[Rfam]
RNA sequence: CCUGUUAUUCCGUUAACAGUAACCUAGCAGCAGGUGCGUGAAUGGCAACAUUCGGGUGCUAAGGUGCUGUGACAAAGUAGCCCUUUCCCCAAAAGGGAAUAAGCAAUCUUCGUGAGAAGAAAGUGAUACUGCUAGCACAAAGGCGGUUGGGAGC
Number, nucleotide and partner (000 for none) at each position: 001c000002c019003u018004g017005u016006u015007a014008u000009u000010c000011c000012g000013u000014u007015a006016a005017c004018a003019g002020u000021a000022a000023c000024c000025u000026a000027g000028c069029a068030g067031c066032a065033g060034g059035u058036g057037c056038g000039u054040g053041a052042a051043u050044g049045g000046c000047a000048a000049c044050a043051u042052u041053c040054g039055g000056g037057u036058g035059c034060u033061a000062a000063g000064g000065u032066g031067c030068u029069g028070u000071g000072a000073c000074a000075a000076a000077g000078u000079a000080g000081c000082c000083c000084u000085u099086u098087c097088c096089c095090c000091a000092a000093a000094a000095g089096g088097g087098a086099a085100u000101a124102a000103g000104c123105a000106a000107u000108c000109u000110u117111c116112g000113u000114g000115a000116g111117a110118a000119g000120a000121a000122a000123g104124u101125g000126a000127u000128a147129c146130u145131g144132c143133u142134a000135g000136c000137a000138c000139a000140a000141a000142g133143g132144c131145g130146g129147u128148u000149g000150g000151g000152a000153g000154c000
The family of this 154-nucleotide RNA sequence from Pseudobacteroides cellulosolvens is "Group II catalytic intron D1-D4-7". From the family's description: Group II introns are found in rRNA, tRNA and mRNA of organelles in fungi, plants and protists, and also in mRNA in bacteria. Rfam links the family to the GO term Group II intron splicing.